The family of this 77-nucleotide RNA sequence from Apis mellifera is "mir-124 microRNA precursor family". Pairs were carried over by alignment from the consensus structure, which was predicted with PFOLD. The organism belongs to Apis, within Eukaryota. A reference for the family is Lai et al. (2003), "Computational identification of Drosophila microRNA genes", Genome Biol.
[Rfam]
RNA sequence: UGCUCCUUGCGUUCACUGCGGGCUUCCAUGUGCCAACUUUUCAAAAUUCAUAAGGCACGCGGUGAAUGCCAAGAGCG
Numbered sequence: 001u002g003c004u005c006c007u008u009g010c011g012u013u014c015a016c017u018g019c020g021g022g023c024u025u026c027c028a029u030g031u032g033c034c035a036a037c038u039u040u041u042c043a044a045a046a047u048u049c050a051u052a053a054g055g056c057a058c059g060c061g062g063u064g065a066a067u068g069c070c071a072a073g074a075g076c077g
Base pairs, nucleotide, nucleotide: 003075004074005073009069010068011067012066013065014064015063016062018060019059020058023055024054025053029052030051031050032049
Record summary:
Gene Ontology terms of the family: RISC complex and miRNA-mediated post-transcriptional gene silencing.